[Rfam]
RNA sequence: AUAACCUGUAAUCUUCGUAUAGGACGAAGAGCAUCCACCCUCAAACCGCUUAAUUUGAGGUCACCAGGGAGA
Numbered sequence: 001a002u003a004a005c006c007u008g009u010a011a012u013c014u015u016c017g018u019a020u021a022g023g024a025c026g027a028a029g030a031g032c033a034u035c036c037a038c039c040c041u042c043a044a045a046c047c048g049c050u051u052a053a054u055u056u057g058a059g060g061u062c063a064c065c066a067g068g069g070a071g072a
Stems, first nucleotide, its partner, number of pairs: 002071001005068004012030007040059006
The record is a 72-nucleotide RNA sequence, which matches "2dG-II purine riboswitch aptamer" in Rfam. The literature on the family includes a 2017 paper in Proc Natl Acad Sci U S A by Weinberg et al., "Bioinformatic analysis of riboswitch structures uncovers variant classes with altered ligand specificity".